[Rfam]
RNA sequence: AAGGGGGAGCCGAAAACCCUGAAAAGAGUAGGGC
Numbered sequence: 001a002a003g004g005g006g007g008a009g010c011c012g013a014a015a016a017c018c019c020u021g022a023a024a025a026g027a028g029u030a031g032g033g034c
Base pairs, nucleotide, nucleotide: 002020003019004018005017010032011031